Mammalian CPEB3 ribozyme: a 76-nucleotide RNA sequence from Chelydra serpentina.
From the family's description: The mammalian CPEB3 ribozyme is a self cleaving RNA located in the second intron of the CPEB3 gene which belongs to a family of genes regulating messenger RNA polyadenylation.
It scores 48 bits against the family's covariance model.
Rfam links the family to the GO term RNA nuclease activity.
The family's consensus secondary structure is taken from published work.
[Rfam]
RNA sequence: AGGUGCUACCUUGGGUCAUAGCAGGAGUGUUCAUGUUGUGGCCCCUGUCAGAUUUUCAGAAUCUGCUCAUGCUGUU
Numbered sequence: 001a002g003g004u005g006c007u008a009c010c011u012u013g014g015g016u017c018a019u020a021g022c023a024g025g026a027g028u029g030u031u032c033a034u035g036u037u038g039u040g041g042c043c044c045c046u047g048u049c050a051g052a053u054u055u056u057c058a059g060a061a062u063c064u065g066c067u068c069a070u071g072c073u074g075u076u
Base pairs, nucleotide, nucleotide: 013044014043015042016041017040020076021075022074023073024072026070027039028038029037049065050064051063052062053061054060055059